[Rfam]
Background: Rfam assigns this 143-nucleotide sequence from Biostraticola tofi to the family "Molybdenum/Tungsten riboswitch aptamer (Moco RNA motif)".
RNA sequence: GUUAAAAUCGAACUCCUAGCCUUUACGCCUAAGUGGUUCAUUGUUGAACGAUAUGGCGCACUGGCCGUGGCGAUUGCCACCAGGGUGCAGGGUAGAAAUGCCGGCAUCUCCCGUAUUUGGAAAGGUGUUAACGGUGCCACAAC
Numbered sequence: 001g002u003u004a005a006a007a008u009c010g011a012a013c014u015c016c017u018a019g020c021c022u023u024u025a026c027g028c029c030u031a032a033g034u035g036g037u038u039c040a041u042u043g044u045u046g047a048a049c050g051a052u053a054u055g056g057c058g059c060a061c062u063g064g065c066c067g068u069g070g071c072g073a074u075u076g077c078c079a080c081c082a083g084g085g086u087g088c089a090g091g092g093u094a095g096a097a098a099u100g101c102c103g104g105c106a107u108c109u110c111c112c113g114u115a116u117u118u119g120g121a122a123a124g125g126u127g128u129u130a131a132c133g134g135u136g137c138c139a140c141a142a143c
Base pairs, nucleotide, nucleotide: 011129012128013127015125016124019065020064021063024060026058027057028056029055033052034051036049037048038047039046040045067080068079069078070077071076083109084108085107086106087105088104091102092101093100094099110120111119
Taxonomically the source falls in Biostraticola (Bacteria, Pseudomonadati, Enterobacterales, Bruguierivoracaceae).